The family of this 96-nucleotide RNA from Pseudomonas rhizosphaerae is "t44 RNA". NCBI's taxonomy places the organism under Bacteria, Gammaproteobacteria, Pseudomonadales, Pseudomonadaceae, Pseudomonas. On this family, see Tjaden et al., Nucleic Acids Res 2002: "Transcriptome analysis of Escherichia coli using high-density oligonucleotide probe arrays". It is annotated as a small RNA.
RNA sequence: CCCGGGAGCAACCAAACCCACACACGUGUCGACACGAUGACCUGGGUGCCGGUGGUUCUGCCACGGGUUGGUCAUUGGGAUACGUGGAGGCUUAAC
Number, nucleotide and partner (000 for none) at each position: 001c000002c000003c000004g000005g000006g000007a000008g000009c000010a000011a000012c000013c000014a000015a000016a000017c000018c000019c000020a000021c000022a000023c086024a085025c084026g083027u082028g081029u080030c079031g000032a000033c000034a000035c077036g076037a075038u074039g073040a072041c071042c070043u000044g000045g000046g000047u000048g068049c067050c066051g000052g064053u000054g000055g000056u000057u000058c000059u000060g000061c000062c000063a000064c052065g000066g050067g049068u048069u000070g042071g041072u040073c039074a038075u037076u036077g035078g000079g030080a029081u028082a027083c026084g025085u024086g023087g000088a000089g000090g000091c000092u000093u000094a000095a000096c000